The family of this 75-nucleotide RNA sequence from Tetraodon nigroviridis is "mir-216 microRNA precursor family".
[Rfam]
RNA sequence: UGACUGUUUAAUCUCUGCAGGCAACUGUGAUGGUGAUUUUUAUUCUCACAAUCACCUGGAGAGAUUCUGCAGUUU
Numbered sequence: 001u002g003a004c005u006g007u008u009u010a011a012u013c014u015c016u017g018c019a020g021g022c023a024a025c026u027g028u029g030a031u032g033g034u035g036a037u038u039u040u041u042a043u044u045c046u047c048a049c050a051a052u053c054a055c056c057u058g059g060a061g062a063g064a065u066u067c068u069g070c071a072g073u074u075u
Base pairs, nucleotide, nucleotide: 003073004072005071006070007069010066011065012064013063014062015061016060020057021056024052026050027049028048029047030046
Dot-bracket structure: ..(((((..(((((((...((..(.(((((...............))))).)...))..)))))))..)))))..
Pairs were carried over by alignment from the consensus structure, which was predicted with WAR. The family has 57 seed sequences and 1,667 matches in Rfam 15.1.